Rfam assigns this 133-nucleotide RNA from Oceanites oceanicus to the family "Small nucleolar RNA SNORA71". The match comes from Rfam's covariance-model search (83 bits). For this family Rfam cites "The family of box ACA small nucleolar RNAs is defined by an evolutionarily conserved secondary structure and ubiquitous sequence elements essential for RNA accumulation" (Ganot et al., Genes Dev, 1997). The base pairs follow the family's consensus structure, which was predicted with PFOLD. NCBI's taxonomy places the organism under Eukaryota, Vertebrata, Euteleostomi, Dinosauria, Oceanites. By type it is an H/ACA-box small nucleolar RNA.

RNA sequence: ACCUGCAUUCGUAAGGGAUUGAGGUUUCACCCAUGACUUGGUCAUUGAUAGUGCAAGGAGAGGAGCUCCAAAAGCAUUUCCCGUGUUCGGUGGGUCCCAUCCCGUCCCUCCUAAACCCUGUAGCUUUCAAAGG
Numbered sequence: 001a002c003c004u005g006c007a008u009u010c011g012u013a014a015g016g017g018a019u020u021g022a023g024g025u026u027u028c029a030c031c032c033a034u035g036a037c038u039u040g041g042u043c044a045u046u047g048a049u050a051g052u053g054c055a056a057g058g059a060g061a062g063g064a065g066c067u068c069c070a071a072a073a074g075c076a077u078u079u080c081c082c083g084u085g086u087u088c089g090g091u092g093g094g095u096c097c098c099a100u101c102c103c104g105u106c107c108c109u110c111c112u113a114a115a116c117c118c119u120g121u122a123g124c125u126u127u128c129a130a131a132g133g
Stems, first nucleotide, its partner, number of pairs: 002057001004055006014046002017043005023038004067130001071127005085116003089112001090110001092108003